RNA sequence: GAGUCCGGCGCGCCCCCUGCGUGGUGCCCGGAGCCGGGGACCCACCGAUCCUGGGGUGAAUCGGCCGACUCCCGCCCGGGACGACGCCGUAGGGCAACCCUUCCGUACGCCCGAACCCGACAGCUAACCCGGUAGGCGGCAGCAUGGAAGGAGU
Numbered sequence: 001g002a003g004u005c006c007g008g009c010g011c012g013c014c015c016c017c018u019g020c021g022u023g024g025u026g027c028c029c030g031g032a033g034c035c036g037g038g039g040a041c042c043c044a045c046c047g048a049u050c051c052u053g054g055g056g057u058g059a060a061u062c063g064g065c066c067g068a069c070u071c072c073c074g075c076c077c078g079g080g081a082c083g084a085c086g087c088c089g090u091a092g093g094g095c096a097a098c099c100c101u102u103c104c105g106u107a108c109g110c111c112c113g114a115a116c117c118c119g120a121c122a123g124c125u126a127a128c129c130c131g132g133u134a135g136g137c138g139g140c141a142g143c144a145u146g147g148a149a150g151g152a153g154u
Stems, first nucleotide, its partner, number of pairs: 004032005033133006043053002054118003062089004092112004
Dot-bracket structure: ...(((((...................)))))((((((....((.......))(((.....((((....................))))..((((.............))))...))).........)))))).....................
RNA: c-di-AMP riboswitch aptamer (ydaO/yuaA leader)
Organism: Streptomyces actinomycinicus